[Rfam]
This 67-nucleotide RNA sequence from Pipistrellus kuhlii belongs to the Rfam family "mir-9256 microRNA precursor family". The base pairs follow the family's consensus structure, which was predicted with RNAalifold. Its family is annotated with RISC complex and miRNA-mediated post-transcriptional gene silencing in the Gene Ontology. The match comes from Rfam's covariance-model search (80 bits).
RNA sequence: AUGUACACUGAGUGGCUAGAUUAUGAUGGUCUCUGUAUACAUAAUAAUCUGGCCACUCAGUGUAUAU
Numbered sequence: 001a002u003g004u005a006c007a008c009u010g011a012g013u014g015g016c017u018a019g020a021u022u023a024u025g026a027u028g029g030u031c032u033c034u035g036u037a038u039a040c041a042u043a044a045u046a047a048u049c050u051g052g053c054c055a056c057u058c059a060g061u062g063u064a065u066a067u
Stems, first nucleotide, its partner, number of pairs: 004064014019049006026042003